A member of the RNA family "Streptomyces-metK RNA" from Actinacidiphila oryziradicis, 115 nucleotides long. The match comes from Rfam's covariance-model search (78 bits). Lineage of the source: Bacteria > Bacillati > Actinomycetes > Streptomycetaceae > Actinacidiphila.

RNA sequence: UCGGGGUGCCGUGCCCGUACGGACGAGUCGAACGAUAAACUAGCCGAGGCAUGCCGGGCGCAGCCCCGCGCGAGCCAACAAUGAUCUAGCCAGCAGCCGCUGCAACCCCAGGGAG
Numbered sequence: 001u002c003g004g005g006g007u008g009c010c011g012u013g014c015c016c017g018u019a020c021g022g023a024c025g026a027g028u029c030g031a032a033c034g035a036u037a038a039a040c041u042a043g044c045c046g047a048g049g050c051a052u053g054c055c056g057g058g059c060g061c062a063g064c065c066c067c068g069c070g071c072g073a074g075c076c077a078a079c080a081a082u083g084a085u086c087u088a089g090c091c092a093g094c095a096g097c098c099g100c101u102g103c104a105a106c107c108c109c110a111g112g113g114a115g
Base pairs, nucleotide, nucleotide: 048076049075050074052072053071055068056067057066058065091102092101093100094099

Pairs were carried over by alignment from the consensus structure, which is taken from published work.